[Rfam]
RNA: Mycobacterium smegmatis small RNA 1
Organism: Mycolicibacterium mageritense
Nucleotides: 306
Stems, first nucleotide, its partner, number of pairs: 003066002006063002009061002012058001017053002022050002026046006068256008078246005085239003089235003094231002099114004120222006126211005131204004137198006146191003151185005160179007258298010270286003
Number, partner (000 for none) and nucleotide at each position: 001000a002000c003066g004065g005000a006063a007062g008000c009061u010060u011000g012058g013000a014000u015000g016000a017053g018052g019000c020000c021000a022050a023049g024000g025000c026046u027045u028044a029043g030042c031041c032000g033000g034000a035000a036000g037000a038000g039000a040000a041031g042030g043029c044028u045027a046026a047000a048000u049023c050022u051000c052018c053017c054000g055000a056000a057000c058012c059000a060010g061009g062007c063006u064000c065004c066003c067000c068256a069255g070254c071253a072252c073251g074250g075249g076000u077000c078246c079245c080244g081243g082242u083000a084000c085239c086238c087237a088000c089235g090234c091233g092000g093000a094231g095230c096000a097000c098000a099114u100113g101112c102111c103000g104000c105000g106000g107000a108000a109000u110000a111102g112101g113100c114099a115000a116000a117000a118000g119000u120222g121221u122220u123219g124218c125217g126211g127210g128209c129208c130207u131204g132203c133202g134201u135000g136000a137198u138197u139196g140195c141194g142193a143000a144000g145000a146191g147190c148189g149000g150000a151185c152184g153183g154182c155181u156000a157000c158000g159000a160179c161178g162177g163176c164175c165174c166173u167000u168000u169000g170000g171000g172000u173166g174165g175164g176163g177162u178161u179160g180000c181155a182154g183153c184152c185151g186000a187000a188000g189148c190147g191146c192000a193142u194141u195140g196139c197138a198137a199000g200000g201134a202133c203132g204131c205000c206000g207130a208129g209128g210127c211126c212000a213000c214000c215000c216000a217125c218124g219123c220122a221121a222120c223000c224000c225000a226000u227000c228000u229000g230095g231094c232000a233091c234090g235089c236000u237087u238086g239085g240000u241000a242082a243081c244080c245079g246078g247000u248000a249075u250074c251073c252072g253071u254070g255069c256068u257000a258298g259297c260296g261295g262294g263293c264292g265291g266290c267289g268000a269000g270286c271285c272284g273000a274000a275000a276000c277000a278000u279000c280000g281000u282000u283000u284272c285271g286270g287000a288000c289267c290266g291265u292264c293263g294262c295261c296260c297259g298258c299000u300000u301000u302000c303000g304000u305000u306000u